[Rfam]
RNA sequence: GGAUAAUACUUUUUGUUAUUUUCGACCAAUAACGCAAUGACACGUAAGAUAAUUUUUCCAUGUGUCAUUGUGUUAUUGGCCGAGAAUAUCAAAACAGUGCUAUCU
Numbered sequence: 001g002g003a004u005a006a007u008a009c010u011u012u013u014u015g016u017u018a019u020u021u022u023c024g025a026c027c028a029a030u031a032a033c034g035c036a037a038u039g040a041c042a043c044g045u046a047a048g049a050u051a052a053u054u055u056u057u058c059c060a061u062g063u064g065u066c067a068u069u070g071u072g073u074u075a076u077u078g079g080c081c082g083a084g085a086a087u088a089u090c091a092a093a094a095c096a097g098u099g100c101u102a103u104c105u
Stems, first nucleotide, its partner, number of pairs: 002104004011094005017088003021084004026079020048057002